[Rfam]
RNA sequence: UGGAGCAAUGAUGACAGUUGGAGGAGUAUGAGUCACAGAUGAUGAAUAGCACAUGUCUGAAACUCUGAGGUCCAA
Dot-bracket structure: .(((.(..............................................................).)))..
Numbered sequence: 001u002g003g004a005g006c007a008a009u010g011a012u013g014a015c016a017g018u019u020g021g022a023g024g025a026g027u028a029u030g031a032g033u034c035a036c037a038g039a040u041g042a043u044g045a046a047u048a049g050c051a052c053a054u055g056u057c058u059g060a061a062a063c064u065c066u067g068a069g070g071u072c073c074a075a
Stems, first nucleotide, its partner, number of pairs: 002073003006069001
Rfam assigns this 75-nucleotide RNA from Hipposideros armiger to the family "Small nucleolar RNA SNORD113/SNORD114 family". The family is grouped with related families in Rfam's "SNORD74 clan". For this family Rfam cites "Identification of tandemly-repeated C/D snoRNA genes at the imprinted human 14q32 domain reminiscent of those at the Prader-Willi/Angelman syndrome region" (Cavaille et al., Hum Mol Genet, 2002). Rfam's curators write: The imprinted human domain at 14q32 contains two clusters of tandemly repeated small nucleolar RNAs named 14q(I) and 14q(II) snoRNAs. These two clusters are named SNORD113 and SNORD114 respectively in the HGNC approved gene symbol nomenclature. The snoRNAs found in both clusters are clearly related and are represented here by a single family. The match comes from Rfam's covariance-model search (74 bits).